[Rfam]
RNA sequence: UUCGAUGACCGGGCCCCUCUGGCGGAUGCGGCGGCGCGUCCGUGAUGUCGGCGUCGCAA
Numbered sequence: 001u002u003c004g005a006u007g008a009c010c011g012g013g014c015c016c017c018u019c020u021g022g023c024g025g026a027u028g029c030g031g032c033g034g035c036g037c038g039u040c041c042g043u044g045a046u047g048u049c050g051g052c053g054u055c056g057c058a059a
Base pairs, nucleotide, nucleotide: 006053007052009051010050011049012048022043023042024041025040026039027038028037029036
A member of the RNA family "terC RNA" from Paracoccus sp. R12_2, 59 nucleotides long. The match comes from Rfam's covariance-model search (50 bits). Pairs were carried over by alignment from the consensus structure, which is taken from published work. The family has 129 seed sequences and 1,112 matches in Rfam 15.1.